[Rfam]
RNA: Small nucleolar RNA SNORD72
Organism: Podargus strigoides
RNA sequence: AGCUUGUCAAUGAUUCUUAUUUAAAAUGUCUGAAUGUAUGAACUUCAUAGUGAUUUCGGUGCAUUACUGAGAGAAGCU
Numbered sequence: 001a002g003c004u005u006g007u008c009a010a011u012g013a014u015u016c017u018u019a020u021u022u023a024a025a026a027u028g029u030c031u032g033a034a035u036g037u038a039u040g041a042a043c044u045u046c047a048u049a050g051u052g053a054u055u056u057c058g059g060u061g062c063a064u065u066a067c068u069g070a071g072a073g074a075a076g077c078u
Stems, first nucleotide, its partner, number of pairs: 002077004007072002